[Rfam]
RNA: Glycine riboswitch aptamer
RNA sequence: GUGAAGAUAAUGGGAGAGAGAUUUAUAAUCCGCCGAAGAUGUUAUACUUUCAGGCAAAAGGACCAUUAUUGGACG
Numbered sequence: 001g002u003g004a005a006g007a008u009a010a011u012g013g014g015a016g017a018g019a020g021a022u023u024u025a026u027a028a029u030c031c032g033c034c035g036a037a038g039a040u041g042u043u044a045u046a047c048u049u050u051c052a053g054g055c056a057a058a059a060g061g062a063c064c065a066u067u068a069u070u071g072g073a074c075g
Stems, first nucleotide, its partner, number of pairs: 006070008020030003032055003035051002039049001041047001